[Rfam]
RNA: ZMP/ZTP riboswitch aptamer (pfl RNA motif)
Organism: Sanguibacter sp. Leaf3
RNA sequence: UCUCCACGUCGUGACUGGCGUCUGUGCCCACGUCGCCCGAGGUGUCCGAGAGGCCCCGGGGGACCAGCACAGGAUGGUGGACCACCACCGGGGAGCGACGUGCACCACUCGACUUCGGGUCGUCCGCCUGGGCCCCGGUC
Numbered sequence: 001u002c003u004c005c006a007c008g009u010c011g012u013g014a015c016u017g018g019c020g021u022c023u024g025u026g027c028c029c030a031c032g033u034c035g036c037c038c039g040a041g042g043u044g045u046c047c048g049a050g051a052g053g054c055c056c057c058g059g060g061g062g063a064c065c066a067g068c069a070c071a072g073g074a075u076g077g078u079g080g081a082c083c084a085c086c087a088c089c090g091g092g093g094a095g096c097g098a099c100g101u102g103c104a105c106c107a108c109u110c111g112a113c114u115u116c117g118g119g120u121c122g123u124c125c126g127c128c129u130g131g132g133c134c135c136c137g138g139u140c
Stems, first nucleotide, its partner, number of pairs: 003104001005102008015092002017128004077088004117135005
Dot-bracket structure: ..(.((((((((..(([[[[........................................................((((....))))..))..)))))))).)............(((((...]]]]..))))).....